A member of the RNA family "L2-Alphaproteobacteria ribosomal protein leader" from Marivivens sp. JLT3646, 62 nucleotides long. Rfam classes the family as a cis-regulatory leader.
[Rfam]
RNA sequence: GGGGACCUUCGGGGCCCUAAACUACGGGGACUAACCUCCCUCAAAGCAACGGAAGACAGAGA
Numbered sequence: 001g002g003g004g005a006c007c008u009u010c011g012g013g014g015c016c017c018u019a020a021a022c023u024a025c026g027g028g029g030a031c032u033a034a035c036c037u038c039c040c041u042c043a044a045a046g047c048a049a050c051g052g053a054a055g056a057c058a059g060a061g062a
Stems, first nucleotide, its partner, number of pairs: 001018004006014003027040004
A reference for the family is Eckert and Weinberg (2020), "Discovery of 20 novel ribosomal leader candidates in bacteria and archaea", BMC Microbiol.
The organism belongs to Marivivens, within Bacteria.